[Rfam]
RNA sequence: UCUGGGGGAAGCUCACCGCCGAGGCCACGCACUGGGUGCUUCGUCACUCUUCGUCACGCCUCGGGGAAGGUCUGAGGGAGGGGCCGCCCGCAGCUCUAGCAGAGCUCCGCCCGCGAUGGGGCGGGUGAGCCACCAGCAAGGGGGGGCGCCGCGUAGGGCUCGGCAUGGGCAGGAGAAGCCGAAAAGGGUUGCGUUGGGCUUGGGUAACACCUCCCACGAAAUCCCGGCGGAUGCUCGUGGCCCCGCGGUGCUUUGAGACAGACUCACGGCCAGCAAUGAGUGAGUUCAAUGGGUGAGGUGGGACAUCGUCCUACAACCCAAUUCAGACUACUCUCUCCCGGA
Number, nucleotide and partner (000 for none) at each position: 001u342002c341003u340004g339005g000006g000007g336008g335009a334010a000011g000012c297013u296014c295015a294016c293017c292018g000019c000020c063021g062022a061023g060024g059025c000026c000027a000028c000029g000030c000031a000032c000033u000034g049035g048036g047037u046038g045039c000040u000041u000042c000043g000044u000045c038046a037047c036048u035049c034050u000051u000052c000053g000054u000055c000056a000057c000058g000059c024060c023061u022062c021063g020064g000065g000066g000067a000068a000069g000070g000071u000072c326073u325074g324075a323076g322077g000078g000079a000080g000081g000082g271083g270084c269085c268086g000087c000088c000089c000090g000091c000092a106093g105094c104095u103096c102097u000098a000099g000100c000101a000102g096103a095104g094105c093106u092107c124108c123109g122110c121111c120112c119113g000114c000115g000116a000117u000118g000119g112120g111121g110122c109123g108124g107125g267126u266127g265128a264129g263130c000131c261132a000133c000134c000135a000136g000137c000138a000139a000140g000141g000142g000143g000144g000145g252146g251147c250148g249149c248150c247151g246152c245153g244154u000155a000156g000157g000158g000159c000160u000161c000162g000163g000164c000165a000166u000167g000168g000169g000170c000171a000172g000173g000174a000175g000176a000177a000178g000179c000180c000181g000182a000183a000184a000185a000186g000187g000188g000189u000190u000191g000192c000193g000194u000195u000196g000197g000198g000199c000200u000201u000202g000203g000204g000205u000206a000207a000208c000209a000210c000211c000212u000213c000214c000215c000216a000217c000218g000219a000220a000221a000222u000223c000224c000225c000226g000227g000228c000229g000230g000231a000232u000233g000234c000235u000236c000237g000238u000239g000240g000241c000242c000243c000244c153245g152246c151247g150248g149249u148250g147251c146252u145253u000254u000255g000256a000257g000258a000259c000260a000261g131262a000263c129264u128265c127266a126267c125268g085269g084270c083271c082272a000273g000274c000275a000276a000277u000278g000279a000280g000281u000282g000283a000284g000285u000286u000287c000288a000289a000290u000291g000292g017293g016294u015295g014296a013297g012298g314299u313300g312301g311302g310303a309304c308305a000306u000307c000308g304309u303310c302311c301312u300313a299314c298315a000316a000317c000318c000319c000320a000321a000322u076323u075324c074325a073326g072327a000328c000329u000330a000331c000332u000333c000334u009335c008336u007337c000338c000339c004340g003341g002342a001
A member of the RNA family "Nuclear RNase P" from Galbula dea, 342 nucleotides long. From the family's description: Ribonuclease P (RNase P) is a ubiquitous endoribonuclease, found in archaea, bacteria and eukarya as well as chloroplasts and mitochondria. By type it is a ribozyme. It scores 187 bits against the family's covariance model.